[Rfam]
RNA: Plastid-rps18 3UTR RNA
RNA sequence: UGCAAGUAUUUUAUGAUUAAGAAGCAACUGCAUCUUGUACAGAUCGUGUAUUAAUUG
Numbered sequence: 001u002g003c004a005a006g007u008a009u010u011u012u013a014u015g016a017u018u019a020a021g022a023a024g025c026a027a028c029u030g031c032a033u034c035u036u037g038u039a040c041a042g043a044u045c046g047u048g049u050a051u052u053a054a055u056u057g
Base pairs, nucleotide, nucleotide: 018037019036020035021034022033024031025030